[Rfam]
RNA sequence: CGCGGUCCUCGGUAGUGGUCUCCGGGAUGCAUACGGCAUCCCGUGGGCCUCGAUCGAAGACCGGG
Numbered sequence: 001c002g003c004g005g006u007c008c009u010c011g012g013u014a015g016u017g018g019u020c021u022c023c024g025g026g027a028u029g030c031a032u033a034c035g036g037c038a039u040c041c042c043g044u045g046g047g048c049c050u051c052g053a054u055c056g057a058a059g060a061c062c063g064g065g
Base pairs, nucleotide, nucleotide: 001065003063004062005061006060007059009057010056011055012054013053017049018048019047020046021045023043024042025041026040027039028038029037

The family of this 65-nucleotide sequence from Paeniglutamicibacter cryotolerans is "Actino-pnp RNA". It is annotated as a cis-regulatory element. It scores 70 bits against the family's covariance model. Pairs were carried over by alignment from the consensus structure, which is taken from published work.